Shown here is a 141-nucleotide sequence from Spiroplasma sp. TIUS-1, a member of the family "Ribosomal protein L10 leader".
This family is a putative r-protein leader autoregulatory structure found in B. subtilis and other low-GC Gram-positive bacteria.
By type it is a cis-regulatory leader.
The family's consensus secondary structure was predicted with CMfinder.
The source organism's lineage runs through Bacteria, Mycoplasmatota, Entomoplasmatales, Spiroplasmataceae and Spiroplasma.
[Rfam]
RNA sequence: AUUAUAUUGCUAUUCAUACCAAAGAAAGUAACAGGGGCAACCCUUAAUUUGUUACCGAGGAUGACGAUAAAAUAACAACUAAGAAAAUUAGUUUUAUUUUUAUUUAAUCUCGGUCGACGACCGAGAUUUUCUUUUGAUUAU
Numbered sequence: 001a002u003u004a005u006a007u008u009g010c011u012a013u014u015c016a017u018a019c020c021a022a023a024g025a026a027a028g029u030a031a032c033a034g035g036g037g038c039a040a041c042c043c044u045u046a047a048u049u050u051g052u053u054a055c056c057g058a059g060g061a062u063g064a065c066g067a068u069a070a071a072a073u074a075a076c077a078a079c080u081a082a083g084a085a086a087a088u089u090a091g092u093u094u095u096a097u098u099u100u101u102a103u104u105u106a107a108u109c110u111c112g113g114u115c116g117a118c119g120a121c122c123g124a125g126a127u128u129u130u131c132u133u134u135u136g137a138u139u140a141u
Stems, first nucleotide, its partner, number of pairs: 028055006034043003108126008